[Rfam]
RNA sequence: UAAAUAAGCGUUUUCCGAGCCGUCUCGUCUAAGGAGCAACACUCUAUGACGAUUCGGCCGAUUCGGGUACGGGAGGAAACGACCGUGCCUCCGCGUGCUUGGAAAGGAAAACCAUUAUAGGACGA
Numbered sequence: 001u002a003a004a005u006a007a008g009c010g011u012u013u014u015c016c017g018a019g020c021c022g023u024c025u026c027g028u029c030u031a032a033g034g035a036g037c038a039a040c041a042c043u044c045u046a047u048g049a050c051g052a053u054u055c056g057g058c059c060g061a062u063u064c065g066g067g068u069a070c071g072g073g074a075g076g077a078a079a080c081g082a083c084c085g086u087g088c089c090u091c092c093g094c095g096u097g098c099u100u101g102g103a104a105a106g107g108a109a110a111a112c113c114a115u116u117a118u119a120g121g122a123c124g125a
Base pairs, nucleotide, nucleotide: 004118006116011111012110013109014108015107016106019058020057021056022055025052026051027050028049029048033045034044035043036042065090066089067088068087069086070085071084072083075080091102092101
Dot-bracket structure: ...(.(....((((((..((((..(((((...((((.....))))..)))))..))))......((((((((..(....)..))))))))((........))...))))))....).).......

A member of the RNA family "Molybdenum/Tungsten riboswitch aptamer (Moco RNA motif)" from Thermosinus carboxydivorans, 125 nucleotides long. Pairs were carried over by alignment from the consensus structure, which is taken from published work.